[Rfam]
RNA: Group I catalytic intron
Organism: Niallia endozanthoxylica
RNA sequence: UUACAACUCUUGAGAUAAAUGAUAAGAAGGGCGUCUAGCUUGGUAACGAGCUAGAGGAUAACUGGGUGAAUUGCUGGAACUUCCUAAAGCUUCAUCAACCACAACGUAAUUGGAAACGGUAAGUGUGAAGGUUUGAAAAUGAUGAAGAUGAAACAAUGGAUAAUCAGCAGCCAAGCUCCUGUCUCGAAAGAGUGGAGAAGGUUCAACGACUAGAGAACACGGUCUAAGGCAAAAGCUAUGAUUAUGAAUCUCGUAGGGCAGCUAGUCUGUUCGAAGUGCCCAGCUCCAUGAAAACAUGGAUGAAGAUAUAGUCUAUUCUGUGAUUUCGAAAGACACAG
Numbered sequence: 001u002u003a004c005a006a007c008u009c010u011u012g013a014g015a016u017a018a019a020u021g022a023u024a025a026g027a028a029g030g031g032c033g034u035c036u037a038g039c040u041u042g043g044u045a046a047c048g049a050g051c052u053a054g055a056g057g058a059u060a061a062c063u064g065g066g067u068g069a070a071u072u073g074c075u076g077g078a079a080c081u082u083c084c085u086a087a088a089g090c091u092u093c094a095u096c097a098a099c100c101a102c103a104a105c106g107u108a109a110u111u112g113g114a115a116a117c118g119g120u121a122a123g124u125g126u127g128a129a130g131g132u133u134u135g136a137a138a139a140u141g142a143u144g145a146a147g148a149u150g151a152a153a154c155a156a157u158g159g160a161u162a163a164u165c166a167g168c169a170g171c172c173a174a175g176c177u178c179c180u181g182u183c184u185c186g187a188a189a190g191a192g193u194g195g196a197g198a199a200g201g202u203u204c205a206a207c208g209a210c211u212a213g214a215g216a217a218c219a220c221g222g223u224c225u226a227a228g229g230c231a232a233a234a235g236c237u238a239u240g241a242u243u244a245u246g247a248a249u250c251u252c253g254u255a256g257g258g259c260a261g262c263u264a265g266u267c268u269g270u271u272c273g274a275a276g277u278g279c280c281c282a283g284c285u286c287c288a289u290g291a292a293a294a295c296a297u298g299g300a301u302g303a304a305g306a307u308a309u310a311g312u313c314u315a316u317u318c319u320g321u322g323a324u325u326u327c328g329a330a331a332g333a334c335a336c337a338g
Stems, first nucleotide, its partner, number of pairs: 001028002039050003062283004067278002072169006082160003170202002177195002183190002206314001208313005285300006320336003326333002